[Rfam]
RNA sequence: CGAGCGAUAAUCCUGAAUUUAUUUGCGAGCUGGACGAUAUGAGGAUCUAGCACCAUGUAAAUUCAGCAUUUGAGCUC
Numbered sequence: 001c002g003a004g005c006g007a008u009a010a011u012c013c014u015g016a017a018u019u020u021a022u023u024u025g026c027g028a029g030c031u032g033g034a035c036g037a038u039a040u041g042a043g044g045a046u047c048u049a050g051c052a053c054c055a056u057g058u059a060a061a062u063u064c065a066g067c068a069u070u071u072g073a074g075c076u077c
Base pairs, nucleotide, nucleotide: 013066014065015064016063017062018061019060020059021058022057024055025054027053030050031049033047034046035044